[Rfam]
RNA sequence: GGGCCAGCUUAGCCUAGCGGUUUCAUCUGUCACAGCUAUGGACGCUAUCCCGGUGGUUCGAGUCCCGCGGGCGCUGCCUGGUCUUUUG
Numbered sequence: 001g002g003g004c005c006a007g008c009u010u011a012g013c014c015u016a017g018c019g020g021u022u023u024c025a026u027c028u029g030u031c032a033c034a035g036c037u038a039u040g041g042a043c044g045c046u047a048u049c050c051c052g053g054u055g056g057u058u059c060g061a062g063u064c065c066c067g068c069g070g071g072c073g074c075u076g077c078c079u080g081g082u083c084u085u086u087u088g
Base pairs, nucleotide, nucleotide: 002083003082004081005080006079007078012072013071014070015069017068018067019066020065026061027060029058
This 88-nucleotide sequence from Varanus komodoensis belongs to the Rfam family "Vault RNA". Rfam 15.1 lists 2,873 matches to the family in 431 species. A search with the family's covariance model found it, with a score of 61 bits. Rfam classes the family as a non-coding RNA gene.